[Rfam]
RNA sequence: GCACUGAAAGUGAGAGUUGGAUGAAAACAAACUGACUGAUCAUCAGACAACUCCAACAAAUCACUGAUCAGCUUGUUUUCUUCCAGUAUCUCACCUUCAGCAA
Numbered sequence: 001g002c003a004c005u006g007a008a009a010g011u012g013a014g015a016g017u018u019g020g021a022u023g024a025a026a027a028c029a030a031a032c033u034g035a036c037u038g039a040u041c042a043u044c045a046g047a048c049a050a051c052u053c054c055a056a057c058a059a060a061u062c063a064c065u066g067a068u069c070a071g072c073u074u075g076u077u078u079u080c081u082u083c084c085a086g087u088a089u090c091u092c093a094c095c096u097u098c099a100g101c102a103a
Base pairs, nucleotide, nucleotide: 004100005099006098007097008096011093012092013091014090016087017086018085019084020083021082023080024079025078026077027076028075029074030073032071033070034069035068